[Rfam]
RNA sequence: GGAGUCCCAUCAGGAAAAGGCCUAACCAGCAGUCCUGUAGCUAGUUCUUGGAGGUAAUUCGUAACGAAAAACAUUAAGCGUAGAACGGCAAAAUAGCGGGCCGAAAGCGAAAGCUGAAGUGAUGGAGCCUCGAAAAAUAAGUGGAGACAGGCCGAUGUGGUUACACACACAGAAGGCAAUAUCGGUUCGAGCAUUUUGGUGAGUUUGAAUCGGCACUCCGGGGUCUGAGAGCU
Numbered sequence: 001g002g003a004g005u006c007c008c009a010u011c012a013g014g015a016a017a018a019g020g021c022c023u024a025a026c027c028a029g030c031a032g033u034c035c036u037g038u039a040g041c042u043a044g045u046u047c048u049u050g051g052a053g054g055u056a057a058u059u060c061g062u063a064a065c066g067a068a069a070a071a072c073a074u075u076a077a078g079c080g081u082a083g084a085a086c087g088g089c090a091a092a093a094u095a096g097c098g099g100g101c102c103g104a105a106a107g108c109g110a111a112a113g114c115u116g117a118a119g120u121g122a123u124g125g126a127g128c129c130u131c132g133a134a135a136a137a138u139a140a141g142u143g144g145a146g147a148c149a150g151g152c153c154g155a156u157g158u159g160g161u162u163a164c165a166c167a168c169a170c171a172g173a174a175g176g177c178a179a180u181a182u183c184g185g186u187u188c189g190a191g192c193a194u195u196u197u198g199g200u201g202a203g204u205u206u207g208a209a210u211c212g213g214c215a216c217u218c219c220g221g222g223g224u225c226u227g228a229g230a231g232c233u
Base pairs, nucleotide, nucleotide: 012036013035014034015033020030021029023202025200026199038091040089041088044086046084047083048082049080050079051075052074054072055071058068059067060066061065125225127224128223129222130221131220132219144218145217146216150214151177152176153175156171157170158169159168182213183212184211185210186209187208188207189206190205191204192203
Dot-bracket structure: ...........((((....((.[.[[..))..)))).(.((..(.(((((((.((..((((...))))..)).))...)).))).).)).).................................(.((((((...........(((...((((..((((........))))...)))....(((((((((((......]].])))))))))))).))))))))))........
This 233-nucleotide sequence from Paenibacillus popilliae belongs to the Rfam family "Group II catalytic intron D1-D4-6". Group II introns are found in rRNA, tRNA and mRNA of organelles in fungi, plants and protists, and also in mRNA in bacteria. Taxonomically the source falls in Paenibacillus popilliae (Bacteria, Bacilli, Caryophanales, Paenibacillaceae).